[Rfam]
RNA: ZMP/ZTP riboswitch aptamer (pfl RNA motif)
RNA sequence: AGAACCUUCGAGUACUGACGGAAAGAGUGGAGUGCAAACCACGUGGAGUCGGAGGUUUGUGGGAGCCGACCGUCUGGGCAGUAUUU
Numbered sequence: 001a002g003a004a005c006c007u008u009c010g011a012g013u014a015c016u017g018a019c020g021g022a023a024a025g026a027g028u029g030g031a032g033u034g035c036a037a038a039c040c041a042c043g044u045g046g047a048g049u050c051g052g053a054g055g056u057u058u059g060u061g062g063g064a065g066c067c068g069a070c071c072g073u074c075u076g077g078g079c080a081g082u083a084u085u086u
Base pairs, nucleotide, nucleotide: 003057004056005055006054007053008052009051010050011049015045017074018073019072020071021070027042028041029040030039065079066078067077